RNA sequence: AGAUUUCUUCGGGGCAGGGUGUAAUUCCCGACCGAUGGUGACAGUCGCCGUACUUACGGGUACGGUUGACUGAAGUCCGUGACCCACGGUUUUCCGUGGUUGACCCAGUGCGAGUCUGGGACCGACAGUUAAAGUCUGGAUGGGAGAAGAAAAAA
Numbered sequence: 001a002g003a004u005u006u007c008u009u010c011g012g013g014g015c016a017g018g019g020u021g022u023a024a025u026u027c028c029c030g031a032c033c034g035a036u037g038g039u040g041a042c043a044g045u046c047g048c049c050g051u052a053c054u055u056a057c058g059g060g061u062a063c064g065g066u067u068g069a070c071u072g073a074a075g076u077c078c079g080u081g082a083c084c085c086a087c088g089g090u091u092u093u094c095c096g097u098g099g100u101u102g103a104c105c106c107a108g109u110g111c112g113a114g115u116c117u118g119g120g121a122c123c124g125a126c127a128g129u130u131a132a133a134g135u136c137u138g139g140a141u142g143g144g145a146g147a148a149g150a151a152a153a154a155a
Stems, first nucleotide, its partner, number of pairs: 004152007017029003031135002033124002035080004075122002084099002104120005126138003

Notes: A member of the RNA family "FMN riboswitch aptamer (RFN element)" from Secundilactobacillus similis, 155 nucleotides long. Pairs were carried over by alignment from the consensus structure, which is taken from published work. The match comes from Rfam's covariance-model search (101 bits). Rfam's curators write: The RFN element is a highly conserved domain that is found frequently in the 5'-untranslated regions of prokaryotic mRNAs that encode for flavin mononucleotide (FMN) biosynthesis and transport proteins. Gene Ontology term of the family: FMN binding.